Notes
Rfam assigns this 97-nucleotide RNA from Equus caballus to the family "mir-544 microRNA precursor family". Rfam links the family to the GO terms miRNA-mediated post-transcriptional gene silencing and RISC complex. The family's consensus secondary structure was predicted with RNAalifold. The source organism's lineage runs through Eukaryota, Metazoa, Gnathostomata, Dipnotetrapodomorpha and Equus.

[Rfam]
RNA sequence: AUCAUGUGGGGAUCUUGUUAAAAUGCAAAUUUUGAUUGCGCAGGGCUGGGAUGGGUCUGAAAUUCUGCAUUUCUAACAAGCUCCCAGGUGAUGCCAU
Numbered sequence: 001a002u003c004a005u006g007u008g009g010g011g012a013u014c015u016u017g018u019u020a021a022a023a024u025g026c027a028a029a030u031u032u033u034g035a036u037u038g039c040g041c042a043g044g045g046c047u048g049g050g051a052u053g054g055g056u057c058u059g060a061a062a063u064u065c066u067g068c069a070u071u072u073c074u075a076a077c078a079a080g081c082u083c084c085c086a087g088g089u090g091a092u093g094c095c096a097u
Base pairs, nucleotide, nucleotide: 003090004089005088009084010083011082014080015079016078017077018076019075020074021072022071023070025068026067027066029064031062032061033060